[Rfam]
RNA: ASpks TB sRNA
Organism: Kitasatospora kifunensis
RNA sequence: CUUGAUCGAGCCGAGCAGCAACGGCCGCUCCGCCGCCCGCUGCUGUCCGUAGGUGGCGAGCAGGGCCUGCGCCUC
Numbered sequence: 001c002u003u004g005a006u007c008g009a010g011c012c013g014a015g016c017a018g019c020a021a022c023g024g025c026c027g028c029u030c031c032g033c034c035g036c037c038c039g040c041u042g043c044u045g046u047c048c049g050u051a052g053g054u055g056g057c058g059a060g061c062a063g064g065g066c067c068u069g070c071g072c073c074u075c
Stems, first nucleotide, its partner, number of pairs: 015025002031071003038065001043060002047056003